[Rfam]
RNA sequence: AACUACACUAUCGAUAAAUGGAUUCACGUGCGAGAUGAUGUGGCUGUUUCACCUAGGACGAGGACAUGGCAUUCUAUUACCAGCCAUCGCGCGAAAUUAAUGAGAUGCCACGUCCUCAUUCUAGAUGGAACAACCACGUCAUCUCACGGGUGAAUCUAUUCAUCGAUAGUGUAGUU
Numbered sequence: 001a002a003c004u005a006c007a008c009u010a011u012c013g014a015u016a017a018a019u020g021g022a023u024u025c026a027c028g029u030g031c032g033a034g035a036u037g038a039u040g041u042g043g044c045u046g047u048u049u050c051a052c053c054u055a056g057g058a059c060g061a062g063g064a065c066a067u068g069g070c071a072u073u074c075u076a077u078u079a080c081c082a083g084c085c086a087u088c089g090c091g092c093g094a095a096a097u098u099a100a101u102g103a104g105a106u107g108c109c110a111c112g113u114c115c116u117c118a119u120u121c122u123a124g125a126u127g128g129a130a131c132a133a134c135c136a137c138g139u140c141a142u143c144u145c146a147c148g149g150g151u152g153a154a155u156c157u158a159u160u161c162a163u164c165g166a167u168a169g170u171g172u173a174g175u176u
Stems, first nucleotide, its partner, number of pairs: 001176007009168007017160003021156007030147001032145002035142005041136003045132004051126001054123002057120002063114003069108005075102005086097002
Background: Shown here is a 176-nucleotide RNA sequence from Oryza sativa, a member of the family "MIR807 microRNA precursor family". The organism belongs to Oryza sativa, within Eukaryota. Gene Ontology terms of the family: miRNA-mediated post-transcriptional gene silencing and RISC complex.